[Rfam]
RNA: radC RNA
RNA sequence: UCAGUGCUAUACCGCUGCUGCAAGCAGCGCUCCACGUUGCCACGACCUUCAAGGCAACGCGCAGGCCCAGCCUGUGUGGUCGACUCCCAACCCGCCCUGCUACCAGUUUGCGGGUGAUCGCUGCGGCGAUGGUAGC
Number, nucleotide and partner (000 for none) at each position: 001u000002c000003a000004g000005u000006g000007c000008u000009a000010u000011a000012c000013c000014g028015c027016u026017g025018c024019u023020g000021c000022a000023a019024g018025c017026a016027g015028c014029g000030c000031u000032c000033c000034a000035c000036g058037u057038u056039g055040c054041c053042a000043c000044g081045a080046c079047c078048u000049u000050c000051a000052a000053g041054g040055c039056a038057a037058c036059g077060c076061g075062c074063a073064g072065g071066c000067c000068c000069a000070g000071c065072c064073u063074g062075u061076g060077u059078g047079g046080u045081c044082g000083a000084c000085u000086c000087c000088c000089a000090a000091c000092c000093c000094g000095c000096c000097c000098u000099g000100c000101u000102a000103c000104c000105a000106g000107u000108u000109u000110g136111c135112g000113g000114g000115u000116g000117a130118u129119c128120g127121c126122u000123g000124c000125g000126g121127c120128g119129a118130u117131g000132g000133u000134a000135g111136c110